[Rfam]
RNA sequence: CGUGAAAUAAAUCACAAACAAAUACCCCCUUUAUUUGAUUGUGUGAAUUUCUCCUUUUGAUUGCGCUGUAAGAAGCCGUGGCAUUUAGCUACGGCUUUUUACGUUA
Numbered sequence: 001c002g003u004g005a006a007a008u009a010a011a012u013c014a015c016a017a018a019c020a021a022a023u024a025c026c027c028c029c030u031u032u033a034u035u036u037g038a039u040u041g042u043g044u045g046a047a048u049u050u051c052u053c054c055u056u057u058u059g060a061u062u063g064c065g066c067u068g069u070a071a072g073a074a075g076c077c078g079u080g081g082c083a084u085u086u087a088g089c090u091a092c093g094g095c096u097u098u099u100u101a102c103g104u105u106a
Stems, first nucleotide, its partner, number of pairs: 002053001004051005013043005019037006068102015
RNA: Listeria sRNA rli61